[Rfam]
RNA sequence: ACGAGGUGCCUUCCUGAGCUGGCUGAUUGAAGCGUAGAGAACUCCAAUCUUCCCAGGUCAGAGGGCACCUCGCCUUAUUUCACAACACAUCCAUCAGAUUUCCCGCCGUGGAUUCAG
Numbered sequence: 001a002c003g004a005g006g007u008g009c010c011u012u013c014c015u016g017a018g019c020u021g022g023c024u025g026a027u028u029g030a031a032g033c034g035u036a037g038a039g040a041a042c043u044c045c046a047a048u049c050u051u052c053c054c055a056g057g058u059c060a061g062a063g064g065g066c067a068c069c070u071c072g073c074c075u076u077a078u079u080u081c082a083c084a085a086c087a088c089a090u091c092c093a094u095c096a097g098a099u100u101u102c103c104c105g106c107c108g109u110g111g112a113u114u115c116a117g
Stems, first nucleotide, its partner, number of pairs: 002072012015060003019056004025049003029045001031043002097114002101112003